Notes:
Small Cajal body specific RNA 11: a 139-nucleotide RNA from Loxodonta africana. The source organism's lineage runs through Eukaryota, Deuterostomia, Theria, Elephantidae and Loxodonta. Rfam describes the family as follows. scaRNAs are a specific class of small nuclear RNAs which localise to the Cajal bodies and guide the modification of RNA polymerase II transcribed spliceosomal RNAs U1, U2, U4, U5 and U12.

[Rfam]
RNA sequence: UUGUCCUGGCCCCUGCUUUCCCUGCACCCUGUGCUCAGCCCUAACAGGGCAUGUGUGGCAGGACACACAGCAGUCUCCCUCUCAGUUUAGGAGGCCAUCCUAAGUAUAGAGCUGGCUCUUAAAGGCACAAAAGGACAAU
Numbered sequence: 001u002u003g004u005c006c007u008g009g010c011c012c013c014u015g016c017u018u019u020c021c022c023u024g025c026a027c028c029c030u031g032u033g034c035u036c037a038g039c040c041c042u043a044a045c046a047g048g049g050c051a052u053g054u055g056u057g058g059c060a061g062g063a064c065a066c067a068c069a070g071c072a073g074u075c076u077c078c079c080u081c082u083c084a085g086u087u088u089a090g091g092a093g094g095c096c097a098u099c100c101u102a103a104g105u106a107u108a109g110a111g112c113u114g115g116c117u118c119u120u121a122a123a124g125g126c127a128c129a130a131a132a133g134g135a136c137a138a139u
Base pairs, nucleotide, nucleotide: 002065003064004063005062006061007060008059010058011057024054025053026052027049028048029047030046031045032044078134079133080132082130085126086125087124088123091120092119093118094116095115096114098111100109101108102107